[Rfam]
RNA sequence: GUUGCUUCUCAUACUGGAAGAGUGGCAUCCAUCGGGUCAUUUCUUGAUGAGAAGCACACAUUUAACUUGGCCGGUAUUAAACAGCAUGAUGCUUUUUAUUGUUGCAUUUUGUUAUCUGUCUCCUGGUAAAUGU
Numbered sequence: 001g002u003u004g005c006u007u008c009u010c011a012u013a014c015u016g017g018a019a020g021a022g023u024g025g026c027a028u029c030c031a032u033c034g035g036g037u038c039a040u041u042u043c044u045u046g047a048u049g050a051g052a053a054g055c056a057c058a059c060a061u062u063u064a065a066c067u068u069g070g071c072c073g074g075u076a077u078u079a080a081a082c083a084g085c086a087u088g089a090u091g092c093u094u095u096u097u098a099u100u101g102u103u104g105c106a107u108u109u110u111g112u113u114a115u116c117u118g119u120c121u122c123c124u125g126g127u128a129a130a131u132g133u
Base pairs, nucleotide, nucleotide: 003056004055005054006053007052008051018045019044020043021042022041023039024038025037026036070127071126072125073124074123076121083113084112085111088108089107090106091105

A member of the RNA family "small nucleolar RNA snoR137" from Phoenix dactylifera, 133 nucleotides long. On this family, see Chen and Wu, Nucleic Acids Res 2009: "Mining small RNA sequencing data: a new approach to identify small nucleolar RNAs in Arabidopsis". Rfam 15.1 lists 808 matches to the family in 221 species. Lineage of the source: Eukaryota > Viridiplantae > Streptophyta > Spermatophyta > Phoenix. It is annotated as an H/ACA-box small nucleolar RNA.